A member of the RNA family "SAM/SAH riboswitch aptamer" from Roseovarius sp. A46, 48 nucleotides long. The family's consensus secondary structure is taken from published work. The match comes from Rfam's covariance-model search (57 bits).
RNA sequence: AUCCCGUCACAACGGCUUCCUGGCGUGACGGAUGUACCCAAUGGAGCG
Numbered sequence: 001a002u003c004c005c006g007u008c009a010c011a012a013c014g015g016c017u018u019c020c021u022g023g024c025g026u027g028a029c030g031g032a033u034g035u036a037c038c039c040a041a042u043g044g045a046g047c048g
Stems, first nucleotide, its partner, number of pairs: 004031007013022002015047003019044002
Dot-bracket structure: ...(((((((..(([[[.[[))..)))))))...........]]]]].